The family of this 303-nucleotide RNA sequence from Trifolium subterraneum is "Plant signal recognition particle RNA". The base pairs follow the family's consensus structure, which is taken from published work. The family is grouped with related families in Rfam's "SRP clan".

RNA sequence: GCUGAGUUGAGUAACUACAACUUGUAACCCAAGUGGGGGCAUUAUUGUGAUGGAACAUGGCUUUGGCUCAUUGGGCUGGGCUGAGUUGUACUCUAUUCUGGCCUGCCCACUCCAAGUUGAGAGUUGGGUCAUGGGAUUUGGGCGAAGGCUCAGAUCUCCUGGUCUCUAGAAUGGAGGGAACCGCAUGAGGCUGGCUUCACAGAGCAGUGAACACCUCCUGCUCUUGACAGUGGAGGGAUAACAGGCUGUUGUACUCUCAGUCCACAUAGCCUGAUGGGCUUAGCACAUUGAACCAUCACUUUU
Numbered sequence: 001g002c003u004g005a006g007u008u009g010a011g012u013a014a015c016u017a018c019a020a021c022u023u024g025u026a027a028c029c030c031a032a033g034u035g036g037g038g039g040c041a042u043u044a045u046u047g048u049g050a051u052g053g054a055a056c057a058u059g060g061c062u063u064u065g066g067c068u069c070a071u072u073g074g075g076c077u078g079g080g081c082u083g084a085g086u087u088g089u090a091c092u093c094u095a096u097u098c099u100g101g102c103c104u105g106c107c108c109a110c111u112c113c114a115a116g117u118u119g120a121g122a123g124u125u126g127g128g129u130c131a132u133g134g135g136a137u138u139u140g141g142g143c144g145a146a147g148g149c150u151c152a153g154a155u156c157u158c159c160u161g162g163u164c165u166c167u168a169g170a171a172u173g174g175a176g177g178g179a180a181c182c183g184c185a186u187g188a189g190g191c192u193g194g195c196u197u198c199a200c201a202g203a204g205c206a207g208u209g210a211a212c213a214c215c216u217c218c219u220g221c222u223c224u225u226g227a228c229a230g231u232g233g234a235g236g237g238a239u240a241a242c243a244g245g246c247u248g249u250u251g252u253a254c255u256c257u258c259a260g261u262c263c264a265c266a267u268a269g270c271c272u273g274a275u276g277g278g279c280u281u282a283g284c285a286c287a288u289u290g291a292a293c294c295a296u297c298a299c300u301u302u303u
Stems, first nucleotide, its partner, number of pairs: 001040003004023006011016001028037003044302001047299007056290002058287002061283002065279001068277010078263008088254003092251001099248007107237002110235005116228009126165006133158011173218005184209003191202003
Lineage of the source: Eukaryota > Spermatophyta > Pentapetalae > fabids > Trifolium.